[Rfam]
RNA sequence: UGCGCAGCGCGUGUUUCAUGACGAUGUUGGGAAAAGACACACCCUUUAGUCGCGCCGUCCGGAUGUACUGCGCGGUCAUGACCUCGGUCAUUGAGGCGCGUGUCAUCCGGGCAAUAUAGCCCAUCCCGUAAAGCGCGAUUGUCAGCACCGGUAAGAAGAAAUUCUCGAAGGUCGGGUUC
Numbered sequence: 001u002g003c004g005c006a007g008c009g010c011g012u013g014u015u016u017c018a019u020g021a022c023g024a025u026g027u028u029g030g031g032a033a034a035a036g037a038c039a040c041a042c043c044c045u046u047u048a049g050u051c052g053c054g055c056c057g058u059c060c061g062g063a064u065g066u067a068c069u070g071c072g073c074g075g076u077c078a079u080g081a082c083c084u085c086g087g088u089c090a091u092u093g094a095g096g097c098g099c100g101u102g103u104c105a106u107c108c109g110g111g112c113a114a115u116a117u118a119g120c121c122c123a124u125c126c127c128g129u130a131a132a133g134c135g136c137g138a139u140u141g142u143c144a145g146c147a148c149c150g151g152u153a154a155g156a157a158g159a160a161a162u163u164c165u166c167g168a169a170g171g172u173c174g175g176g177u178u179c
Base pairs, nucleotide, nucleotide: 006139008137009136010135011134012133014131015130016128020125021124028123029122030121031120040111042109046105048103051100052099053098054097055075056074057073058072060070061069062068082096083095084094085093086092145179147177148175149174150173151172152171154165155164156163157162
Description: This 179-nucleotide RNA from Ruegeria sp. ANG-S4 belongs to the Rfam family "Ruegeria cis52 sRNA". Rfam classes the family as a small RNA. The organism belongs to Ruegeria, within Bacteria. A reference for the family is Rivers et al. (2016), "Experimental Identification of Small Non-Coding RNAs in the Model Marine Bacterium Ruegeria pomeroyi DSS-3", Front Microbiol. Pairs were carried over by alignment from the consensus structure, which was predicted with RNAfold.